[Rfam]
RNA sequence: AGUGAACUUCGUUUGCAGCGGAAAUCCUUUUUGUGUCAUUGCGAGGGAUGAAGCAAUCUCAAAAAGAUUGUAGAGAAUAGCGGGAUUAGCU
Numbered sequence: 001a002g003u004g005a006a007c008u009u010c011g012u013u014u015g016c017a018g019c020g021g022a023a024a025u026c027c028u029u030u031u032u033g034u035g036u037c038a039u040u041g042c043g044a045g046g047g048a049u050g051a052a053g054c055a056a057u058c059u060c061a062a063a064a065a066g067a068u069u070g071u072a073g074a075g076a077a078u079a080g081c082g083g084g085a086u087u088a089g090c091u
Stems, first nucleotide, its partner, number of pairs: 009083003013079001019073001023069004029064005035058001
Description: The record is a 91-nucleotide RNA sequence from Flavobacterium sp. GT3R68, which matches "Flavo-1 RNA" in Rfam. The family's consensus secondary structure is taken from published work. It scores 43 bits against the family's covariance model.